[Rfam]
RNA sequence: UUCGCCGAGGGGCGCUGCGACCGCGACGCAAGAGCGCGGCCAGGCUUGGCGGAUUCCAAACGUAACGGCGCCCGAUGUCC
Numbered sequence: 001u002u003c004g005c006c007g008a009g010g011g012g013c014g015c016u017g018c019g020a021c022c023g024c025g026a027c028g029c030a031a032g033a034g035c036g037c038g039g040c041c042a043g044g045c046u047u048g049g050c051g052g053a054u055u056c057c058a059a060a061c062g063u064a065a066c067g068g069c070g071c072c073c074g075a076u077g078u079c080c
Stems, first nucleotide, its partner, number of pairs: 002052007021039005

The family of this 80-nucleotide sequence from Lysobacter sp. Root96 is "SAH (S-adenosyl-L-homocysteine) riboswitch aptamer". On this family, see Wang et al., Mol Cell 2008: "Riboswitches that sense S-adenosylhomocysteine and activate genes involved in coenzyme recycling". Its family is annotated with regulation of gene expression and S-adenosylhomocysteine metabolic process in the Gene Ontology. The family has 52 seed sequences and 1,354 matches in Rfam 15.1. Lineage of the source: Bacteria > Gammaproteobacteria > Lysobacterales > Lysobacteraceae > Lysobacter.